The record is a 95-nucleotide RNA sequence from Mycoplasma marinum, which matches "THF (Tetrahydrofolate) riboswitch aptamer" in Rfam. About the family: Tetrahydrofolate (THF) riboswitch was first reported for Ames et al. as an RNA motif in 5' untranslated (5'-UTR)regions of folate transport and biosynthesis genes in Firmicutes genomes. It scores 54 bits against the family's covariance model. Lineage of the source: Bacteria > Bacillati > Mollicutes > Mycoplasmataceae > Mycoplasma.

RNA sequence: AUUAGAGCCGGUGUCUAGCGUUAAGUGUCAAAGGACGGGAGUAUAGCCUUUGAACGAACUACAUUUGUAGGCGAUAAAACACUUCAUCCACUAAU
Numbered sequence: 001a002u003u004a005g006a007g008c009c010g011g012u013g014u015c016u017a018g019c020g021u022u023a024a025g026u027g028u029c030a031a032a033g034g035a036c037g038g039g040a041g042u043a044u045a046g047c048c049u050u051u052g053a054a055c056g057a058a059c060u061a062c063a064u065u066u067g068u069a070g071g072c073g074a075u076a077a078a079a080c081a082c083u084u085c086a087u088c089c090a091c092u093a094a095u
Stems, first nucleotide, its partner, number of pairs: 001095005010083005016077001018075001019073003025055002028053007039089001041087002059070004